Notes: The record is a 212-nucleotide RNA sequence from Mycobacterium decipiens, which matches "Mycobacterium sRNA 6715" in Rfam. It scores 166 bits against the family's covariance model. From the family's description: First sRNA identified as a potential biomarker for the detection of MTB in patients. The source organism's lineage runs through Bacteria, Bacillati, Actinomycetes, Mycobacteriaceae and Mycobacterium. Rfam classes the family as a small RNA. The family's consensus secondary structure was predicted with RNAfold.
RNA sequence: CGCUCAUCGACAACGCUCUCAGCAAGAAACCGCAGGUAGUAACGAUCGAGGCGACCGACAAGGCAUUCAAGACCCACGGCUGCCAGCCCUGGCAGAACACGGGCGGCGAAGGUGGUGCACCGGCUGAACUCCCCGGACCUGCCGCAGAAGCGCAACUACAAAACGAACUCGCCAUCCUCAACGGGCUACUCGGACCGACCGGAGGGCGAGUG
Dot-bracket structure: (((((.((......((.....)).....(((...))).((...(.(.(((..(.((.....))).))).)..)..))..((((((....))))))..(..(.(((.((....)).))).)..)..(...(..(.(.........).)..)..)..........((...(((...(((..............))).))).)))))))))....
Numbered sequence: 001c002g003c004u005c006a007u008c009g010a011c012a013a014c015g016c017u018c019u020c021a022g023c024a025a026g027a028a029a030c031c032g033c034a035g036g037u038a039g040u041a042a043c044g045a046u047c048g049a050g051g052c053g054a055c056c057g058a059c060a061a062g063g064c065a066u067u068c069a070a071g072a073c074c075c076a077c078g079g080c081u082g083c084c085a086g087c088c089c090u091g092g093c094a095g096a097a098c099a100c101g102g103g104c105g106g107c108g109a110a111g112g113u114g115g116u117g118c119a120c121c122g123g124c125u126g127a128a129c130u131c132c133c134c135g136g137a138c139c140u141g142c143c144g145c146a147g148a149a150g151c152g153c154a155a156c157u158a159c160a161a162a163a164c165g166a167a168c169u170c171g172c173c174a175u176c177c178u179c180a181a182c183g184g185g186c187u188a189c190u191c192g193g194a195c196c197g198a199c200c201g202g203a204g205g206g207c208g209a210g211u212g
Stems, first nucleotide, its partner, number of pairs: 001208005007203002015023002029037003039077002044073001046070001048068003053064001055063002080095006098123001101120001103118003107114002126153001130150001133147001135145001164201002169198003175194003